RNA sequence: CCGACCGAAACAUGUCGAAGCAUGACCUCUGCCGAGGUAGUCUGUGGGGUAGAGCGACGGAUUGGGGGACCGCACUCCGAGAGGAGUGCGCCCCCCUGUCCAACUCCGAACCUACAGACGCCAUUUGACGCAGGGAGUCCGGUGCACGGGGUAAGCCUGUGUACCAUAAGGGAGACAACCCAGCGCCGGGUUAAGGUCCCAAAGUGUGGAUUAAGUGCGAUCGAAGGUGGUCCCGAGCCCUAGACAGCCGGGAGGUGAGCUUAGAAGCAGCUACCCUCUAAGAAAAGCGUAACAGCUUACCGGCCGAGGUUCGGGGCGCCCAAAAUGAUCGGGGCUCAAAUCCACCACCGAGACCUGGCCGCACCCCUCACAGGGUGAUCGCGUAGGUCGGCGUUCUGUUCGGGUGGAAGCACGGGUGAGAACUCGUGUGGACCGUUCAGUAACGAAAAU
Numbered sequence: 001c002c003g004a005c006c007g008a009a010a011c012a013u014g015u016c017g018a019a020g021c022a023u024g025a026c027c028u029c030u031g032c033c034g035a036g037g038u039a040g041u042c043u044g045u046g047g048g049g050u051a052g053a054g055c056g057a058c059g060g061a062u063u064g065g066g067g068g069a070c071c072g073c074a075c076u077c078c079g080a081g082a083g084g085a086g087u088g089c090g091c092c093c094c095c096c097u098g099u100c101c102a103a104c105u106c107c108g109a110a111c112c113u114a115c116a117g118a119c120g121c122c123a124u125u126u127g128a129c130g131c132a133g134g135g136a137g138u139c140c141g142g143u144g145c146a147c148g149g150g151g152u153a154a155g156c157c158u159g160u161g162u163a164c165c166a167u168a169a170g171g172g173a174g175a176c177a178a179c180c181c182a183g184c185g186c187c188g189g190g191u192u193a194a195g196g197u198c199c200c201a202a203a204g205u206g207u208g209g210a211u212u213a214a215g216u217g218c219g220a221u222c223g224a225a226g227g228u229g230g231u232c233c234c235g236a237g238c239c240c241u242a243g244a245c246a247g248c249c250g251g252g253a254g255g256u257g258a259g260c261u262u263a264g265a266a267g268c269a270g271c272u273a274c275c276c277u278c279u280a281a282g283a284a285a286a287g288c289g290u291a292a293c294a295g296c297u298u299a300c301c302g303g304c305c306g307a308g309g310u311u312c313g314g315g316g317c318g319c320c321c322a323a324a325a326u327g328a329u330c331g332g333g334g335c336u337c338a339a340a341u342c343c344a345c346c347a348c349c350g351a352g353a354c355c356u357g358g359c360c361g362c363a364c365c366c367c368u369c370a371c372a373g374g375g376u377g378a379u380c381g382c383g384u385a386g387g388u389c390g391g392c393g394u395u396c397u398g399u400u401c402g403g404g405u406g407g408a409a410g411c412a413c414g415g416g417u418g419a420g421a422a423c424u425c426g427u428g429u430g431g432a433c434c435g436u437u438c439a440g441u442a443a444c445g446a447a448a449a450u
Stems, first nucleotide, its partner, number of pairs: 001391006011024005026137001027135006036122003040119008052107001053105002060100003064096005073088006141165009170181003185359007195349003204346001206345006226320003230317010247304005253277003258272003278282001283298001287296002360381002362377005392445001394442001396440003401435003410429008
A member of the RNA family "Archaeal large subunit ribosomal RNA" from Halopiger xanaduensis, 450 nucleotides of a longer RNA. Its family is annotated with ribosome and structural constituent of ribosome in the Gene Ontology. For this family Rfam cites "The comparative RNA web (CRW) site: an online database of comparative sequence and structure information for ribosomal, intron, and other RNAs" (Cannone et al., BMC Bioinformatics, 2002). The organism belongs to Halopiger xanaduensis, within Archaea.